[Rfam]
RNA sequence: UUUUAACCCGAUCACUAGAUUAUCUACAAGGGAAUUUUUUUUUAAUUUAAAAAAUUCCCUUGUAGAUAACCCGGUGGUCAGGUUGGAU
Number, nucleotide and partner (000 for none) at each position: 001u000002u087003u086004u085005a084006a083007c082008c081009c000010g079011a078012u077013c076014a075015c074016u073017a000018g071019a000020u069021u068022a067023u066024c065025u064026a063027c062028a061029a060030g059031g058032g057033a056034a055035u054036u053037u052038u051039u050040u049041u000042u000043u000044a000045a000046u000047u000048u000049a040050a039051a038052a037053a036054a035055u034056u033057c032058c031059c030060u029061u028062g027063u026064a025065g024066a023067u022068a021069a020070c000071c018072c000073g016074g015075u014076g013077g012078u011079c010080a000081g008082g007083u006084u005085g004086g003087a002088u000

Shown here is an 88-nucleotide RNA from Homo sapiens, a member of the family "mir-3938 microRNA precursor family". Rfam's curators put it in the seed alignment. Lineage of the source: Eukaryota > Euteleostomi > Theria > Homininae > Homo.